[Rfam]
RNA sequence: GGGUCCGUGGGCACUGACGCCCACGGAGGUCACGUGGAUGGUCGGGCCGCCAUCC
Dot-bracket structure: ....((((((((......)))))))).........(((((((......)))))))
The record is a 55-nucleotide RNA, which matches "nhaA-I RNA" in Rfam. Rfam's curators write: Acidobacteria, Alphaproteobacteria, Betaproteobacteria and Gammaproteobacteria, Verrucomicrobia, cand. division NC10. The family's consensus secondary structure is taken from published work.